[Rfam]
RNA sequence: UUCUUUGUGGUUCGAAACCCUCCCACAUUAAAAAACUAGGUCUUU
Numbered sequence: 001u002u003c004u005u006u007g008u009g010g011u012u013c014g015a016a017a018c019c020c021u022c023c024c025a026c027a028u029u030a031a032a033a034a035a036c037u038a039g040g041u042c043u044u045u
Stems, first nucleotide, its partner, number of pairs: 006027005016037001
PreQ1 (pre queuosine) riboswitch aptamer: a 45-nucleotide RNA from Suttonella ornithocola. The literature on the family includes a 2009 paper in Nat Struct Mol Biol by Klein et al., "Cocrystal structure of a class I preQ1 riboswitch reveals a pseudoknot recognizing an essential hypermodified nucleobase". It scores 45 bits against the family's covariance model. Rfam describes the family as follows. This family is a bacterial riboswitch that binds to the metabolite preQ1, an intermediate in the biosynthesis of the modified nucleoside queuosine from GTP. One example of this riboswitch is located in the leader of the Bacillus subtilis ykvJKLM (queCDEF) operon which encodes four genes necessary for queuosine production. PreQ1 binding to the riboswitch aptamer is thought to induce premature transcription termination within the leader to down-regulate expression of these genes. The base pairs follow the family's consensus structure.